[Rfam]
RNA sequence: AGGUAUUAUAUUUCUUUCAGAAUUUUUCUAGCAGGUCUUCUGACUUUGGUUGGAAAACCAAA
Numbered sequence: 001a002g003g004u005a006u007u008a009u010a011u012u013u014c015u016u017u018c019a020g021a022a023u024u025u026u027u028c029u030a031g032c033a034g035g036u037c038u039u040c041u042g043a044c045u046u047u048g049g050u051u052g053g054a055a056a057a058c059c060a061a062a
Base pairs, nucleotide, nucleotide: 034059035058036057038055039054040053041052042051043050044049
Description:
A member of the RNA family "U7 small nuclear RNA" from Mus musculus, 62 nucleotides long. A search with the family's covariance model found it, with a score of 54 bits. The source organism's lineage runs through Eukaryota, Bilateria, Gnathostomata, Mammalia and Mus. Animal histone pre-mRNAs are spliced by a different mechanism than nuclear pre-mRNAs and self-splicing introns. This processing involves the U7 snRNP, which contains only one RNA species: U7. The 5' end of U7 RNA is thought to base-pair to a conserved spacer element downstream of the cleavage site in histone pre-mRNA. This family contains a number of annotated U7 pseudogenes.